[Rfam]
RNA sequence: AUUCCUGCGCAGAGGCAGUAUCAUAGUCUAUGAAGUUCUACUGAGACGUGAUUAUUGCUAGUUGAAAACUUUACCCAAUACCCUGCCUGGUUGAUUUGCAAUAUAAUCAGCUGUGGCAAUUUUUGAUGGUCUCCUUAGAGA
Numbered sequence: 001a002u003u004c005c006u007g008c009g010c011a012g013a014g015g016c017a018g019u020a021u022c023a024u025a026g027u028c029u030a031u032g033a034a035g036u037u038c039u040a041c042u043g044a045g046a047c048g049u050g051a052u053u054a055u056u057g058c059u060a061g062u063u064g065a066a067a068a069c070u071u072u073a074c075c076c077a078a079u080a081c082c083c084u085g086c087c088u089g090g091u092u093g094a095u096u097u098g099c100a101a102u103a104u105a106a107u108c109a110g111c112u113g114u115g116g117c118a119a120u121u122u123u124u125g126a127u128g129g130u131c132u133c134c135u136u137a138g139a140g141a
Base pairs, nucleotide, nucleotide: 020052021051022050023049024048026047027046028045034042035041036040085117086116087115088113089112090111091110092109093108094107095106096105130141131140132139133138
Rfam assigns this 141-nucleotide RNA from Takifugu rubripes to the family "U4 spliceosomal RNA". The family is grouped with related families in Rfam's "U4 clan". Taxonomically the source falls in Takifugu (Eukaryota, Chordata, Neoteleostei, Percomorphaceae).